[Rfam]
RNA: SAH (S-adenosyl-L-homocysteine) riboswitch aptamer
Organism: Novilysobacter arseniciresistens
Nucleotides: 080
Stems, first nucleotide, its partner, number of pairs: 002051007021038005
Number, partner (000 for none) and nucleotide at each position: 001000u002051c003050c004049a005048c006047c007046g008045a009000g010000g011000g012000g013000c014000g015000c016000u017000g018000c019000g020000a021038c022037c023036g024035c025034g026000a027000c028000a029000u030000a031000g032000a033000a034025c035024g036023c037022g038021g039000c040000c041000a042000g043000g044000c045008u046007c047006g048005g049004u050003g051002g052000a053000a054000u055000c056000c057000a058000c059000g060000c061000a062000u063000c064000a065000a066000c067000g068000g069000c070000g071000c072000c073000c074000g075000g076000u077000u078000g079000c080000u